A member of the RNA family "chrB-a RNA" from Gemmobacter aquaticus, 93 nucleotides long.
The source organism's lineage runs through Bacteria, Pseudomonadati, Pseudomonadota, Rhodobacterales and Gemmobacter.
The family has 163 seed sequences and 347 matches in Rfam 15.1.
RNA sequence: CGUAUGGGGUCCCGCGAGCACCCCACGAGGCGCCAGCCGAAGAUCGCGUUCACGCCCUGAUUCCAUCGAACCCAGAGGGGAGGAACGCAGAUG
Number, nucleotide and partner (000 for none) at each position: 001c000002g000003u000004a000005u025006g024007g023008g022009g021010u020011c000012c000013c000014g000015c000016g000017a000018g000019c000020a010021c009022c008023c007024c006025a005026c000027g000028a000029g000030g000031c000032g000033c000034c000035a000036g000037c000038c000039g000040a000041a000042g000043a000044u000045c000046g088047c087048g086049u085050u084051c083052a000053c000054g000055c000056c000057c000058u000059g000060a000061u000062u000063c000064c000065a000066u000067c000068g000069a000070a000071c000072c000073c000074a000075g000076a000077g000078g000079g000080g000081a000082g000083g051084a050085a049086c048087g047088c046089a000090g000091a000092u000093g000